[Rfam]
RNA sequence: GCCGAGCGGGGUAACGCCUGCUUGUGACCCAAGUGGGGGCAUUAAGGUGAUUGGACUUUGGCACAUUCCUCAGGGUCGGGUCCAUGGCGACAAUGCUCUGGCCUGCCUGUUCCAAGCAGGGAGUUGGGCUUCGGGGCUUGAGCGAAGGCAUGGGUCUCGAUGCUCUUAGAGAGGAACGCACCGCGUGAGGCUGGUUUCACAGAGCAGCGAAAAGUUCCCUCUCCUUGCAGUGGAAAGCUAACAGGCCGUCGUUACCUAGACCCAAUGUGGCUCUGCGGGCCGAUCCAAUUGAACAAUCACUUUU
Numbered sequence: 001g002c003c004g005a006g007c008g009g010g011g012u013a014a015c016g017c018c019u020g021c022u023u024g025u026g027a028c029c030c031a032a033g034u035g036g037g038g039g040c041a042u043u044a045a046g047g048u049g050a051u052u053g054g055a056c057u058u059u060g061g062c063a064c065a066u067u068c069c070u071c072a073g074g075g076u077c078g079g080g081u082c083c084a085u086g087g088c089g090a091c092a093a094u095g096c097u098c099u100g101g102c103c104u105g106c107c108u109g110u111u112c113c114a115a116g117c118a119g120g121g122a123g124u125u126g127g128g129c130u131u132c133g134g135g136g137c138u139u140g141a142g143c144g145a146a147g148g149c150a151u152g153g154g155u156c157u158c159g160a161u162g163c164u165c166u167u168a169g170a171g172a173g174g175a176a177c178g179c180a181c182c183g184c185g186u187g188a189g190g191c192u193g194g195u196u197u198c199a200c201a202g203a204g205c206a207g208c209g210a211a212a213a214g215u216u217c218c219c220u221c222u223c224c225u226u227g228c229a230g231u232g233g234a235a236a237g238c239u240a241a242c243a244g245g246c247c248g249u250c251g252u253u254a255c256c257u258a259g260a261c262c263c264a265a266u267g268u269g270g271c272u273c274u275g276c277g278g279g280c281c282g283a284u285c286c287a288a289u290u291g292a293a294c295a296a297u298c299a300c301u302u303u304u
Stems, first nucleotide, its partner, number of pairs: 001040003004023007028037003044303010056291001058288003061284001066279001068278002071275007078263005084257001086255001089253002099248007107237002110235005116228008126165004131160010142149002166171001173218005184209003191202003
Plant signal recognition particle RNA: a 304-nucleotide sequence from Hibiscus syriacus. Taxonomically the source falls in Hibiscus (Eukaryota, Embryophyta, malvids, Malvaceae). It is annotated as a non-coding RNA gene. Its family is annotated with signal recognition particle, endoplasmic reticulum targeting and SRP-dependent cotranslational protein targeting to membrane, signal sequence recognition in the Gene Ontology. On this family, see Wild et al., Curr Opin Struct Biol 2002: "Towards the structure of the mammalian signal recognition particle". Pairs were carried over by alignment from the consensus structure, which is taken from published work. The match comes from Rfam's covariance-model search (243 bits).